Overview: This 77-nucleotide RNA sequence from Physeter macrocephalus belongs to the Rfam family "Z6 small nucleolar RNA". A search with the family's covariance model found it, with a score of 41 bits. Rfam 15.1 lists 212 matches to the family in 144 species.

RNA sequence: UGCUGACCCGCGCCUUCCUCCCUCUCUGCGCAGGGCUCCCGGGAACCGGGAGAGAUGCUGCCCCGGAAGCUGAAGCG
Number, nucleotide and partner (000 for none) at each position: 001u077002g076003c075004u074005g000006a000007c000008c000009c000010g000011c000012g000013c000014c000015u000016u000017c000018c000019u000020c000021c000022c000023u000024c000025u000026c000027u000028g000029c000030g000031c000032a000033g000034g000035g000036c000037u000038c000039c000040c000041g000042g000043g000044a000045a000046c000047c000048g000049g000050g000051a000052g000053a000054g000055a000056u000057g000058c000059u000060g000061c000062c000063c000064c000065g000066g000067a000068a000069g000070c000071u000072g000073a000074a004075g003076c002077g001